[Rfam]
RNA: gntR-DTE RNA
RNA sequence: CGGGCAGUCGUCGGCGGCAACACCUUCUCUUGCGUGCUGGCUCUGGAGAACGCCCCGCUUCAAAGGGGUGCCACCCGGUACGCGCCGCCCUGCUGGCGUCAGAGCAGUGACGAUGACGCCCCCG
Numbered sequence: 001c002g003g004g005c006a007g008u009c010g011u012c013g014g015c016g017g018c019a020a021c022a023c024c025u026u027c028u029c030u031u032g033c034g035u036g037c038u039g040g041c042u043c044u045g046g047a048g049a050a051c052g053c054c055c056c057g058c059u060u061c062a063a064a065g066g067g068g069u070g071c072c073a074c075c076c077g078g079u080a081c082g083c084g085c086c087g088c089c090c091u092g093c094u095g096g097c098g099u100c101a102g103a104g105c106a107g108u109g110a111c112g113a114u115g116a117c118g119c120c121c122c123c124g
Base pairs, nucleotide, nucleotide: 013089014088015087016086017085018084032083033082034081035080036079037078038077039076040075044073045072046071051070052069053068054067055066
Dot-bracket structure: ............((((((.............(((((((((...(((....(((((..........)))))))).)))))))))))))))...................................